[Rfam]
RNA: Transposase-2 RNA
Organism: Bifidobacterium gallicum
RNA sequence: GAAACGCGAACCAAGCAGCCCUCCCGGCGUGAGGCUUGGAGCUGGAAGCCGCAAGGCUCCCAUGUC
Numbered sequence: 001g002a003a004a005c006g007c008g009a010a011c012c013a014a015g016c017a018g019c020c021c022u023c024c025c026g027g028c029g030u031g032a033g034g035c036u037u038g039g040a041g042c043u044g045g046a047a048g049c050c051g052c053a054a055g056g057c058u059c060c061c062a063u064g065u066c
Stems, first nucleotide, its partner, number of pairs: 011039005018028003043062003047058004